RNA: Small nucleolar RNA MBII-202
RNA sequence: AGUAACAUCUAAUUGCUGUCCUGCUUGAUGAAAGUACAUUUGAACACUCUUCUAUCUGACAACUGAAAAUAAGUAAC
Numbered sequence: 001a002g003u004a005a006c007a008u009c010u011a012a013u014u015g016c017u018g019u020c021c022u023g024c025u026u027g028a029u030g031a032a033a034g035u036a037c038a039u040u041u042g043a044a045c046a047c048u049c050u051u052c053u054a055u056c057u058g059a060c061a062a063c064u065g066a067a068a069a070u071a072a073g074u075a076a077c
Stems, first nucleotide, its partner, number of pairs: 002077002005074002